[Rfam]
RNA sequence: UUUUCAUAAUUAGAAAUUACUUAUAUAUCGUCGUAAUUGGUCGACAGUUUCUACCCAGUACCGCAAAUACUGGACUAUAAGUAAAAAAAGUGUUUCG
Numbered sequence: 001u002u003u004u005c006a007u008a009a010u011u012a013g014a015a016a017u018u019a020c021u022u023a024u025a026u027a028u029c030g031u032c033g034u035a036a037u038u039g040g041u042c043g044a045c046a047g048u049u050u051c052u053a054c055c056c057a058g059u060a061c062c063g064c065a066a067a068u069a070c071u072g073g074a075c076u077a078u079a080a081g082u083a084a085a086a087a088a089a090g091u092g093u094u095u096c097g
Base pairs, nucleotide, nucleotide: 018083019082020081021080022079023078024077025076030045031044032043033042055073056072057071058070059069060068
Dot-bracket structure: .................((((((((....((((........)))).........((((((.......))))))..))))))))..............